[Rfam]
RNA sequence: CUACAGCGCCGGGCCCCUCUGGCGGAACGGGACACCCCCCUUCCGCGAUGUCGGAGCUGUUCC
Numbered sequence: 001c002u003a004c005a006g007c008g009c010c011g012g013g014c015c016c017c018u019c020u021g022g023c024g025g026a027a028c029g030g031g032a033c034a035c036c037c038c039c040c041u042u043c044c045g046c047g048a049u050g051u052c053g054g055a056g057c058u059g060u061u062c063c
Stems, first nucleotide, its partner, number of pairs: 006057002009054004022046005029041003
Annotation
Rfam assigns this 63-nucleotide RNA sequence from Salinarimonas ramus to the family "terC RNA". It scores 54 bits against the family's covariance model. Taxonomically the source falls in Salinarimonas (Bacteria, Pseudomonadati, Pseudomonadota, Salinarimonadaceae).